[Rfam]
RNA sequence: UUAACGAAACGGCAAAUCCACCGAAAGAUGGAGGCGCAAAGCCACGGGCCUAAGGCGAAAUGCUAUGGCAGCCGGGUUGCCGAA
Numbered sequence: 001u002u003a004a005c006g007a008a009a010c011g012g013c014a015a016a017u018c019c020a021c022c023g024a025a026a027g028a029u030g031g032a033g034g035c036g037c038a039a040a041g042c043c044a045c046g047g048g049c050c051u052a053a054g055g056c057g058a059a060a061u062g063c064u065a066u067g068g069c070a071g072c073c074g075g076g077u078u079g080c081c082g083a084a
Base pairs, nucleotide, nucleotide: 012037013036017032018031019030020029022027040078041077042076043075045074046073047072048069049068050067055063056062057061
RNA: c-di-GMP-I riboswitch aptamer